[Rfam]
RNA: sRNA-Xcc1
RNA sequence: GGCUGGGAGCGGGCGUAAUACAAUACCCGCAGGGAAAUAAACCCGCCGUCUGUGUGCGGUUUUGAGCUCCUGGCCACCGUCUU
Numbered sequence: 001g002g003c004u005g006g007g008a009g010c011g012g013g014c015g016u017a018a019u020a021c022a023a024u025a026c027c028c029g030c031a032g033g034g035a036a037a038u039a040a041a042c043c044c045g046c047c048g049u050c051u052g053u054g055u056g057c058g059g060u061u062u063u064g065a066g067c068u069c070c071u072g073g074c075c076a077c078c079g080u081c082u083u
Base pairs, nucleotide, nucleotide: 001075002074003073004072005071006070007069008068009067012043013042016039017038026034027033028032045060046059047058048057049056